RNA: Glycine riboswitch aptamer
Organism: Rugositalea oryzae
RNA sequence: AUUGUCAUCUCGGAAGAGUCCAUUCCGCAGCUGCGGCGUGGCGCCGACGGAGCAACCGCCCCGGAAACUCUCAGGCAAACGGACCGGGAUGAUUUC
Numbered sequence: 001a002u003u004g005u006c007a008u009c010u011c012g013g014a015a016g017a018g019u020c021c022a023u024u025c026c027g028c029a030g031c032u033g034c035g036g037c038g039u040g041g042c043g044c045c046g047a048c049g050g051a052g053c054a055a056c057c058g059c060c061c062c063g064g065a066a067a068c069u070c071u072c073a074g075g076c077a078a079a080c081g082g083a084c085c086g087g088g089a090u091g092a093u094u095u096c
Stems, first nucleotide, its partner, number of pairs: 006091008020041004043076003046072002050070003056064002
Dot-bracket structure: .....((((((((......((((..............)))).(((((..(((...((.....))...))))).))).......)))))))).....